[Rfam]
RNA sequence: GUGGCAUCUGAGGUAGUAUGUAAUAUUGUAGACUGUCUAUAAUGUCCACAAUGUUUCAACUAACUCGGCUGUUCU
Numbered sequence: 001g002u003g004g005c006a007u008c009u010g011a012g013g014u015a016g017u018a019u020g021u022a023a024u025a026u027u028g029u030a031g032a033c034u035g036u037c038u039a040u041a042a043u044g045u046c047c048a049c050a051a052u053g054u055u056u057c058a059a060c061u062a063a064c065u066c067g068g069c070u071g072u073u074c075u
Stems, first nucleotide, its partner, number of pairs: 003073003010066003014062004022055004027050003

Shown here is a 75-nucleotide sequence from Caenorhabditis elegans, a member of the family "mir-84 microRNA precursor family". It is one of the family's seed sequences. Its family is annotated with miRNA-mediated post-transcriptional gene silencing and RISC complex in the Gene Ontology. NCBI's taxonomy places the organism under Eukaryota, Opisthokonta, Eumetazoa, Rhabditida, Caenorhabditis. The family's consensus secondary structure was predicted with RNAalifold. The family has 8 seed sequences and 33 matches in Rfam 15.1.